The record is a 54-nucleotide RNA from Endobacterium cereale, which matches "COG3860 RNA" in Rfam.

RNA sequence: CGGUCUGCAGUUCACCGAGGCGUUGCCGUCCCGCAAGGGAAGCUAAACCUGCUU
Numbered sequence: 001c002g003g004u005c006u007g008c009a010g011u012u013c014a015c016c017g018a019g020g021c022g023u024u025g026c027c028g029u030c031c032c033g034c035a036a037g038g039g040a041a042g043c044u045a046a047a048c049c050u051g052c053u054u
Base pairs, nucleotide, nucleotide: 001017002016003015004014029040030039031038032037
A search with the family's covariance model found it, with a score of 74 bits.